[Rfam]
RNA: MIR8562 microRNA precursor family
RNA sequence: UUUUCUACAAAUCGGAAUGAUCUGGAAUUUAGAGCAUAUGUUUAGCAAAAAUAGGCGAAUCUACGAAAAAUAUCAAAAAAAUUAUUUUACAUGAAAUAAAUUGACCAAAAUACCUCCGAAAAGUUUCAGGGGUAUUUUGGUCAAUUUUUUUUUCUCGAAUUAUUUUUUUUAUAUUUUUAUUAGGUGCUUCUCACUAAGAUGUACACACGCUUCAAAUUUCAGAUCAUUUCGAUUUGUAGAAAA
Numbered sequence: 001u002u003u004u005c006u007a008c009a010a011a012u013c014g015g016a017a018u019g020a021u022c023u024g025g026a027a028u029u030u031a032g033a034g035c036a037u038a039u040g041u042u043u044a045g046c047a048a049a050a051a052u053a054g055g056c057g058a059a060u061c062u063a064c065g066a067a068a069a070a071u072a073u074c075a076a077a078a079a080a081a082u083u084a085u086u087u088u089a090c091a092u093g094a095a096a097u098a099a100a101u102u103g104a105c106c107a108a109a110a111u112a113c114c115u116c117c118g119a120a121a122a123g124u125u126u127c128a129g130g131g132g133u134a135u136u137u138u139g140g141u142c143a144a145u146u147u148u149u150u151u152u153u154c155u156c157g158a159a160u161u162a163u164u165u166u167u168u169u170u171a172u173a174u175u176u177u178u179a180u181u182a183g184g185u186g187c188u189u190c191u192c193a194c195u196a197a198g199a200u201g202u203a204c205a206c207a208c209g210c211u212u213c214a215a216a217u218u219u220c221a222g223a224u225c226a227u228u229u230c231g232a233u234u235u236g237u238a239g240a241a242a243a
Base pairs, nucleotide, nucleotide: 001243002242003241004240005239006238007237008236009235010234011233012232013231014230015229016228017227018226019225020224021223022222023221024220025219026218027217028216029215030214032212033211034210037207039205040204041203043201044200061183062182063181066178067177068176069175070174071173072172073171075169076168077167078166079165080164098147099146100145101144102143103142104141105140106139107138108137109136110135111134112133113132114131115130118125119124